Notes
The family of this 163-nucleotide RNA sequence from Hypocryptadius cinnamomeus is "U1 spliceosomal RNA". Rfam describes the family as follows. U1 is a small nuclear RNA (snRNA) component of the spliceosome (involved in pre-mRNA splicing). Its 5' end forms complementary base pairs with the 5' splice junction, thus defining the 5' donor site of an intron. There are significant differences in sequence and secondary structure between metazoan and yeast U1 snRNAs, the latter being much longer (568 nucleotides as compared to 164 nucleotides in human). The match comes from Rfam's covariance-model search (90 bits).

RNA sequence: AUACUUACCUGGCAGGGGAGGCACCAGGAUCAGGCAGCUGGUUUUCCCAAGGCAGGGUUCAUCCCCUGCACUCUGGGUGUUCUGACCCCUGGAUUUCCCAAAAUGUGGGAAAUUUGGCCAUAUAAUUUGUAGUAACAGAGGACUGCUCUAGCAGGGGCCUUGA
Numbered sequence: 001a002u003a004c005u006u007a008c009c010u011g012g013c014a015g016g017g018g019a020g021g022c023a024c025c026a027g028g029a030u031c032a033g034g035c036a037g038c039u040g041g042u043u044u045u046c047c048c049a050a051g052g053c054a055g056g057g058u059u060c061a062u063c064c065c066c067u068g069c070a071c072u073c074u075g076g077g078u079g080u081u082c083u084g085a086c087c088c089c090u091g092g093a094u095u096u097c098c099c100a101a102a103a104u105g106u107g108g109g110a111a112a113u114u115u116g117g118c119c120a121u122a123u124a125a126u127u128u129g130u131a132g133u134a135a136c137a138g139a140g141g142a143c144u145g146c147u148c149u150a151g152c153a154g155g156g157g158c159c160u161u162g163a
Stems, first nucleotide, its partner, number of pairs: 012121001015118001016048006023042005049090001051088002056083002060079005092115002094112003098108002138161004143157001144153003
The source organism's lineage runs through Eukaryota, Gnathostomata, Amniota, Sylvioidea and Hypocryptadius. Rfam 15.1 lists 40,184 matches to the family in 1,499 species. The family's consensus secondary structure is taken from published work.